[Rfam]
Source information: Shown here is a 106-nucleotide RNA from Flavobacterium pygoscelis, a member of the family "SAM riboswitch aptamer (S box leader)". NCBI's taxonomy places the organism under Bacteria, Bacteroidota, Flavobacteriales, Flavobacteriaceae, Flavobacterium.
RNA sequence: AAGUUAUCACGAAAGGCGGAGGGAAAGACCCAAUGAAACCUUAGCAACCCUUUAUUUUAUAAAGAAGGUGCUACAUUCUACCACAAAAUAUGUGGAUAGAUAACAC
Dot-bracket structure: ..((((((....((((....(((..[[[))).......))))((((.((((((.......))))..))))))...(]]].(((((.....)))))..)))))))..